[Rfam]
RNA sequence: GUGGCUGGGCCAGGGGCUGCAACACAGGACAUGGGAGCUGCCUCUCACUCCCGCUCGUGUCUUGUGUUGCAGCCAGUGGAACUGC
Numbered sequence: 001g002u003g004g005c006u007g008g009g010c011c012a013g014g015g016g017c018u019g020c021a022a023c024a025c026a027g028g029a030c031a032u033g034g035g036a037g038c039u040g041c042c043u044c045u046c047a048c049u050c051c052c053g054c055u056c057g058u059g060u061c062u063u064g065u066g067u068u069g070c071a072g073c074c075a076g077u078g079g080a081a082c083u084g085c
Stems, first nucleotide, its partner, number of pairs: 011078002015074004020069011032057004